Rfam assigns this 76-nucleotide RNA sequence from Caenorhabditis bovis to the family "mir-252 microRNA precursor family".
Pairs were carried over by alignment from the consensus structure, which was predicted with RNAalifold.
The family is grouped with related families in Rfam's "mir-252 microRNA precursor family".
It scores 49 bits against the family's covariance model.
On this family, see Ruby et al., Cell 2006: "Large-scale sequencing reveals 21U-RNAs and additional microRNAs and endogenous siRNAs in C. elegans".
RNA sequence: UACCGAGUAUAAGUAGUGGUGCCGCAGGUAAACCGAUGAAUGGUCUUACCUGACAGUUCACUACUUAACCUCGAAA
Numbered sequence: 001u002a003c004c005g006a007g008u009a010u011a012a013g014u015a016g017u018g019g020u021g022c023c024g025c026a027g028g029u030a031a032a033c034c035g036a037u038g039a040a041u042g043g044u045c046u047u048a049c050c051u052g053a054c055a056g057u058u059c060a061c062u063a064c065u066u067a068a069c070c071u072c073g074a075a076a
Base pairs, nucleotide, nucleotide: 001076004073005072006071007070010067011066012065013064014063015062016061017060018059019058024054025052026051027050028049029048030047
Dot-bracket structure: (..((((..((((((((((....(((((((................)))))).)...))))))))))..))))..)